[Rfam]
RNA sequence: AAAGCAAAUCAACCUUGUUGCUUCUGUAUAUUUUUGCUGAAGAGGAAAGUCCGGACACCAAAGGAUAUCACAGCGGGUAACUCCCGUCCAUCGUAAGAUGAGGACCAGUGCAACAGAAAGAAAGUACAGUUUGGCUGUAGUGAAAUCAGGUAAACUCUGUGAGGUGCAAUGCUAUGUAUACCGGAUUUAUAAGGGCUAUCCGUCCGAUGCCGGGGGGUAAGCAGAUUGAAAUAAGGAGUAAUUCUUAUUCUAGAUAAAUAACAAGGCUUUUCAGAAAUGAGAAUGACAAAAUCCGGCUUAUUGAUUUGCUUUUUUU
Numbered sequence: 001a002a003a004g005c006a007a008a009u010c011a012a013c014c015u016u017g018u019u020g021c022u023u024c025u026g027u028a029u030a031u032u033u034u035u036g037c038u039g040a041a042g043a044g045g046a047a048a049g050u051c052c053g054g055a056c057a058c059c060a061a062a063g064g065a066u067a068u069c070a071c072a073g074c075g076g077g078u079a080a081c082u083c084c085c086g087u088c089c090a091u092c093g094u095a096a097g098a099u100g101a102g103g104a105c106c107a108g109u110g111c112a113a114c115a116g117a118a119a120g121a122a123a124g125u126a127c128a129g130u131u132u133g134g135c136u137g138u139a140g141u142g143a144a145a146u147c148a149g150g151u152a153a154a155c156u157c158u159g160u161g162a163g164g165u166g167c168a169a170u171g172c173u174a175u176g177u178a179u180a181c182c183g184g185a186u187u188u189a190u191a192a193g194g195g196c197u198a199u200c201c202g203u204c205c206g207a208u209g210c211c212g213g214g215g216g217g218u219a220a221g222c223a224g225a226u227u228g229a230a231a232u233a234a235g236g237a238g239u240a241a242u243u244c245u246u247a248u249u250c251u252a253g254a255u256a257a258a259u260a261a262c263a264a265g266g267c268u269u270u271u272c273a274g275a276a277a278u279g280a281g282a283a284u285g286a287c288a289a290a291a292u293c294c295g296g297c298u299u300a301u302u303g304a305u306u307u308g309c310u311u312u313u314u315u316u
Stems, first nucleotide, its partner, number of pairs: 001312010011301001013266007021042004026037003047299003051296005056166004063201004068162005073087005088102001089100004103157002108155002110151002125139006170223004181213004193205004230249008
Notes:
Rfam assigns this 316-nucleotide RNA from Apibacter mensalis to the family "Bacterial RNase P class A". Pairs were carried over by alignment from the consensus structure, which is taken from published work. Gene Ontology terms of the family: ribonuclease P activity, dimeric ribonuclease P complex and tRNA processing.